small nucleolar RNA snoR117: an 83-nucleotide sequence from Cucurbita maxima.
NCBI's taxonomy places the organism under Eukaryota, Spermatophyta, Pentapetalae, Cucurbitales, Cucurbita.
The family's consensus secondary structure was predicted with RNAalifold.
The literature on the family includes a 2009 paper in Nucleic Acids Res by Chen and Wu, "Mining small RNA sequencing data: a new approach to identify small nucleolar RNAs in Arabidopsis".
RNA sequence: GGCCAAUGAUGUAGAAAAUUUGUCCGUACCAUCUGAGAAGUAAUUCGAUGGAGCAUCCAAUCAAACAUUAUGUUCUGAGGCCU
Numbered sequence: 001g002g003c004c005a006a007u008g009a010u011g012u013a014g015a016a017a018a019u020u021u022g023u024c025c026g027u028a029c030c031a032u033c034u035g036a037g038a039a040g041u042a043a044u045u046c047g048a049u050g051g052a053g054c055a056u057c058c059a060a061u062c063a064a065a066c067a068u069u070a071u072g073u074u075c076u077g078a079g080g081c082c083u
Base pairs, nucleotide, nucleotide: 001082002081003080004079